Overview:
Rfam assigns this 112-nucleotide RNA from Virgisporangium aurantiacum to the family "TPP riboswitch aptamer (THI element)". Gene Ontology term of the family: thiamine pyrophosphate binding. The organism belongs to Virgisporangium, within Bacteria.
RNA sequence: AGACGCACUCGCGGGAGCUCGAUGCAUCGGGCUGAGAGGACGGCUAUGGCGCCGUCGACCGCAUGAACCUGUCCGGGUAAUGCCGGCGUAGGGAGCAGCAGUGAGCGAGUCG
Number, nucleotide and partner (000 for none) at each position: 001a000002g000003a000004c000005g000006c000007a000008c098009u097010c000011g062012c061013g060014g059015g000016a000017g032018c031019u030020c029021g028022a000023u000024g000025c000026a000027u000028c021029g020030g019031g018032c017033u000034g000035a000036g000037a000038g000039g056040a055041c054042g053043g052044c000045u000046a000047u000048g000049g000050c000051g000052c043053c042054g041055u040056c039057g000058a000059c014060c013061g012062c011063a000064u000065g000066a000067a000068c092069c091070u090071g089072u000073c086074c085075g084076g083077g000078u000079a000080a000081u000082g000083c076084c075085g074086g073087c000088g000089u071090a070091g069092g068093g000094a000095g000096c000097a009098g008099c000100a000101g000102u000103g000104a000105g000106c000107g000108a000109g000110u000111c000112g000